Source information:
A member of the RNA family "c-di-GMP-I riboswitch aptamer" from Candidatus Galacturonatibacter soehngenii, 88 nucleotides long. Gene Ontology term of the family: cyclic-di-GMP binding.

RNA sequence: AGUUUAAUUUGGCAAACUUAUCGAAAGAUAAGGACGCAAAGCUAGAAGCCUGUCGAAAAGUUUUUUCUAUGGUAGUUCAGUUGCAACU
Number, nucleotide and partner (000 for none) at each position: 001a000002g000003u000004u000005u000006a000007a000008u000009u000010u000011g000012g037013c036014a000015a000016a000017c032018u031019u030020a029021u028022c027023g000024a000025a000026a000027g022028a021029u020030a019031a018032g017033g000034a000035c000036g013037c012038a000039a000040a082041g081042c080043u079044a000045g078046a077047a076048g073049c072050c071051u000052g000053u000054c000055g067056a066057a065058a064059a000060g000061u000062u000063u000064u058065u057066u056067c055068u000069a000070u000071g050072g049073u048074a000075g000076u047077u046078c045079a043080g042081u041082u040083g000084c000085a000086a000087c000088u000
NCBI's taxonomy places the organism under Bacteria, Bacillati, Clostridia, Lachnospiraceae, Candidatus Galacturonatibacter. GEMM was predicted in a large-scale screen for bacterial structured RNA regulatory elements. Pairs were carried over by alignment from the consensus structure, which is taken from published work.